[Rfam]
RNA sequence: CGGUCAUCCCCGGGGGGGCUGCGCCUGAGCAGCUGAGAUAUGGCUGAUGCCGUGACCCGCCGAACCUGAUCCCGUUAGCGCGGGCGGAGGGAGGGAGCGGUCCAUAUCC
Numbered sequence: 001c002g003g004u005c006a007u008c009c010c011c012g013g014g015g016g017g018g019c020u021g022c023g024c025c026u027g028a029g030c031a032g033c034u035g036a037g038a039u040a041u042g043g044c045u046g047a048u049g050c051c052g053u054g055a056c057c058c059g060c061c062g063a064a065c066c067u068g069a070u071c072c073c074g075u076u077a078g079c080g081c082g083g084g085c086g087g088a089g090g091g092a093g094g095g096a097g098c099g100g101u102c103c104a105u106a107u108c109c
Stems, first nucleotide, its partner, number of pairs: 007096004011059004018033005040053005065090003071084004

Shown here is a 109-nucleotide RNA sequence from Sphingomonas aliaeris, a member of the family "TPP riboswitch aptamer (THI element)". Taxonomically the source falls in Sphingomonas (Bacteria, Pseudomonadati, Pseudomonadota, Sphingomonadaceae). The family's consensus secondary structure is taken from published work. Rfam links the family to the GO term thiamine pyrophosphate binding.